A member of the RNA family "Glycine riboswitch aptamer" from Heliomicrobium modesticaldum, 101 nucleotides long. The source organism's lineage runs through Bacteria, Bacillati, Clostridia, Heliomicrobium and Heliomicrobium modesticaldum. A search with the family's covariance model found it, with a score of 66 bits.

RNA sequence: GGACGAAACUCUGGAGAGACCCUGCCAGACAGGGCGCCGAAGGGGCAAAGCGGUCAGACUUUACCGUUAAAUCUCUCAGGCAAAAGGACAGAGCAAGUGCG
Numbered sequence: 001g002g003a004c005g006a007a008a009c010u011c012u013g014g015a016g017a018g019a020c021c022c023u024g025c026c027a028g029a030c031a032g033g034g035c036g037c038c039g040a041a042g043g044g045g046c047a048a049a050g051c052g053g054u055c056a057g058a059c060u061u062u063a064c065c066g067u068u069a070a071a072u073c074u075c076u077c078a079g080g081c082a083a084a085a086g087g088a089c090a091g092a093g094c095a096a097g098u099g100c101g
Base pairs, nucleotide, nucleotide: 009093010092011091012090013089020034021033022032023031036081037080038079039077040076043075044074045073049068050067051066052065053064054063